[Rfam]
RNA: nrdJ RNA
Organism: Actinacidiphila rubida
RNA sequence: UUACGCCGGCGCACCCAGGGGGUGCGAAGGCGGCAGACAACACCGUGCAGCGGGGGAAGAACCGCGCACAUCAGGGCGUU
Numbered sequence: 001u002u003a004c005g006c007c008g009g010c011g012c013a014c015c016c017a018g019g020g021g022g023u024g025c026g027a028a029g030g031c032g033g034c035a036g037a038c039a040a041c042a043c044c045g046u047g048c049a050g051c052g053g054g055g056g057a058a059g060a061a062c063c064g065c066g067c068a069c070a071u072c073a074g075g076g077c078g079u080u
Stems, first nucleotide, its partner, number of pairs: 004032004010026007045069004050065002053063002